[Rfam]
RNA sequence: GACGCGAUGGCCGAGCGGUUAAGGCGUGUGACUAGAACUUGCUCUACUAGGCUAUCACAUCUCUUCGGAGGCGUAGGUUCAAAUCCUGCUCGCGUCG
Numbered sequence: 001g002a003c004g005c006g007a008u009g010g011c012c013g014a015g016c017g018g019u020u021a022a023g024g025c026g027u028g029u030g031a032c033u034a035g036a037a038c039u040u041g042c043u044c045u046a047c048u049a050g051g052c053u054a055u056c057a058c059a060u061c062u063c064u065u066c067g068g069a070g071g072c073g074u075a076g077g078u079u080c081a082a083a084u085c086c087u088g089c090u091c092g093c094g095u096c097g
Base pairs, nucleotide, nucleotide: 001096002095003094004093005092006091007090010025011024012023027059028058029057030056031055073089074088075087076086077085
Dot-bracket structure: (((((((..(((..........))).(((((.......................))))).............(((((.......)))))))))))).
This 97-nucleotide RNA sequence from Fonsecaea multimorphosa belongs to the Rfam family "tRNA". The base pairs follow the family's consensus structure, which is taken from published work. The family's RNA type in Rfam is transfer RNA. The source organism's lineage runs through Eukaryota, Opisthokonta, leotiomyceta, Eurotiomycetes and Fonsecaea multimorphosa. Rfam's curators write: Transfer RNA (tRNA) molecules are approximately 80 nucleotides in length.